The record is a 54-nucleotide RNA sequence from Cystobacter ferrugineus, which matches "COG3860 RNA" in Rfam. The family's consensus secondary structure is taken from published work. It scores 74 bits against the family's covariance model.
RNA sequence: CGGUCUGCAGUUCACCGAGGCGUCGCCGCCCCGCGAGGGGAGCUAAACCUGCAC
Numbered sequence: 001c002g003g004u005c006u007g008c009a010g011u012u013c014a015c016c017g018a019g020g021c022g023u024c025g026c027c028g029c030c031c032c033g034c035g036a037g038g039g040g041a042g043c044u045a046a047a048c049c050u051g052c053a054c
Stems, first nucleotide, its partner, number of pairs: 001017004029040004

By type it is a cis-regulatory element.